[Rfam]
RNA sequence: CGGGGCGUAGCGCAGCCUGGUAGCGCGUUAGCAUGGGGUGCUAAAGGUCGUGGGUUCAAAUCCCGCCGUCCCGA
Numbered sequence: 001c002g003g004g005g006c007g008u009a010g011c012g013c014a015g016c017c018u019g020g021u022a023g024c025g026c027g028u029u030a031g032c033a034u035g036g037g038g039u040g041c042u043a044a045a046g047g048u049c050g051u052g053g054g055u056u057c058a059a060a061u062c063c064c065g066c067c068g069u070c071c072c073g074a
Stems, first nucleotide, its partner, number of pairs: 001073007010026004028044005050066005

tRNA: a 74-nucleotide RNA from Cysteiniphilum litorale. The family's consensus secondary structure is taken from published work. The organism belongs to Cysteiniphilum, within Bacteria. Rfam links the family to the GO term triplet codon-amino acid adaptor activity.